A member of the RNA family "Polymerase ribosomal frameshift site" from Torovirus bovis, 118 nucleotides long.
It is one of the family's seed sequences.
Lineage of the source: Viruses > Pisuviricota > Tornidovirineae > Torovirinae > Bovine torovirus.
It is annotated as a frameshift element.
Gene Ontology term of the family: viral translational frameshifting.
RNA sequence: UUUAAACUGCUGAGAGAUGUCUGGUGCGCCUGCAGACAUCUCUGUUUUCAAAAUGGCGCGUAUCAGUCGUCACGAUCUAAGCAUUAUAUUGAUUUGGCGACUGAGUACAACGCAGGCA
Numbered sequence: 001u002u003u004a005a006a007c008u009g010c011u012g013a014g015a016g017a018u019g020u021c022u023g024g025u026g027c028g029c030c031u032g033c034a035g036a037c038a039u040c041u042c043u044g045u046u047u048u049c050a051a052a053a054u055g056g057c058g059c060g061u062a063u064c065a066g067u068c069g070u071c072a073c074g075a076u077c078u079a080a081g082c083a084u085u086a087u088a089u090u091g092a093u094u095u096g097g098c099g100a101c102u103g104a105g106u107a108c109a110a111c112g113c114a115g116g117c118a
Stems, first nucleotide, its partner, number of pairs: 013043011028117005